[Rfam]
RNA sequence: AUUUGUGUGAGGAACCGGCAACCCCAAAGAGUCGAAACAAGGUCAGACGUCUUUGUGUUGCCGGCCCU
Numbered sequence: 001a002u003u004u005g006u007g008u009g010a011g012g013a014a015c016c017g018g019c020a021a022c023c024c025c026a027a028a029g030a031g032u033c034g035a036a037a038c039a040a041g042g043u044c045a046g047a048c049g050u051c052u053u054u055g056u057g058u059u060g061c062c063g064g065c066c067c068u
Base pairs, nucleotide, nucleotide: 015064016063017062018061019060020059024055028052029051030050031048032047033046